[Rfam]
Rfam assigns this 104-nucleotide sequence from Canis lupus to the family "mir-8834 microRNA precursor family". The base pairs follow the family's consensus structure, which was predicted with RNAalifold. The family has 2 seed sequences and 13,926 matches in Rfam 15.1. NCBI's taxonomy places the organism under Eukaryota, Metazoa, Theria, Caniformia, Canis lupus.

RNA sequence: AGGAGGAACAACCCCAGUGGCGGAGGCAGCUCUGGAGCCUGGAGUCAGCUCCCGCAGUAACUAAGGAGCUCUCGGUCUGCAGGGCGGGGAGGCUCCGGGGCGGG
Numbered sequence: 001a002g003g004a005g006g007a008a009c010a011a012c013c014c015c016a017g018u019g020g021c022g023g024a025g026g027c028a029g030c031u032c033u034g035g036a037g038c039c040u041g042g043a044g045u046c047a048g049c050u051c052c053c054g055c056a057g058u059a060a061c062u063a064a065g066g067a068g069c070u071c072u073c074g075g076u077c078u079g080c081a082g083g084g085c086g087g088g089g090a091g092g093c094u095c096c097g098g099g100g101c102g103g104g
Stems, first nucleotide, its partner, number of pairs: 002096004009088001012084003019077003023073003028070006036062001039057003
Dot-bracket structure: .((((...(..(((....(((.(((..((((((..(..(((.............)))....)..))))))))).)))....)))...)....))))........